[Rfam]
RNA sequence: CGCCUCGUCAUUGGGGAGUAGCCACCCUCCAGCGAGAGGGGCGUGCGCCAACAGACUCGGGACCAUCCUGCCUCAGGCGGUCCCGUGGCGCACGCGGCAGCCGGACAGCGUCCGGCCGGUUC
Numbered sequence: 001c002g003c004c005u006c007g008u009c010a011u012u013g014g015g016g017a018g019u020a021g022c023c024a025c026c027c028u029c030c031a032g033c034g035a036g037a038g039g040g041g042c043g044u045g046c047g048c049c050a051a052c053a054g055a056c057u058c059g060g061g062a063c064c065a066u067c068c069u070g071c072c073u074c075a076g077g078c079g080g081u082c083c084c085g086u087g088g089c090g091c092a093c094g095c096g097g098c099a100g101c102c103g104g105a106c107a108g109c110g111u112c113c114g115g116c117c118g119g120u121u122c
Base pairs, nucleotide, nucleotide: 026039027038028037041095042094043093044092045091046090047089048088049087050086058085059084060083061082062081063080064079
Shown here is a 122-nucleotide sequence from Azospirillum sp. TSH58, a member of the family "Manganese Mn2+ riboswitch aptamer (yybP-ykoY)". Gene Ontology term of the family: manganese ion binding. The family has 29 seed sequences and 1,126 matches in Rfam 15.1.